[Rfam]
RNA sequence: AGGUGAAUUACUGGGUAAGAUCUCCUUUGGAAGCUUGGUUUCUUUUAAUAUUACUAGAUUGUAAUGGGAGUCACGUUGCCAAAGGAGAUUUGCCCAGUGAUUCGUUA
Numbered sequence: 001a002g003g004u005g006a007a008u009u010a011c012u013g014g015g016u017a018a019g020a021u022c023u024c025c026u027u028u029g030g031a032a033g034c035u036u037g038g039u040u041u042c043u044u045u046u047a048a049u050a051u052u053a054c055u056a057g058a059u060u061g062u063a064a065u066g067g068g069a070g071u072c073a074c075g076u077u078g079c080c081a082a083a084g085g086a087g088a089u090u091u092g093c094c095c096a097g098u099g100a101u102u103c104g105u106u107a
Stems, first nucleotide, its partner, number of pairs: 005103005011097009022087004028081003032077003036073001
Background:
mir-399 microRNA precursor family: a 107-nucleotide RNA sequence from Lactuca sativa. The organism belongs to Lactuca, within Eukaryota. For this family Rfam cites "Computational Identification of Plant MicroRNAs and Their Targets, Including a Stress-Induced miRNA" (Jones-Rhoades and Bartel, Mol Cell, 2004). Rfam 15.1 lists 2,396 matches to the family in 221 species. About the family: mir-399 was identified in both Arabidopsis thaliana and Oryza sativa computationally and was later experimentally verified. mir-399 is thought to target mRNAs coding for a phosphatase transporter. The mature sequence is excised from the 3' arm of the hairpin.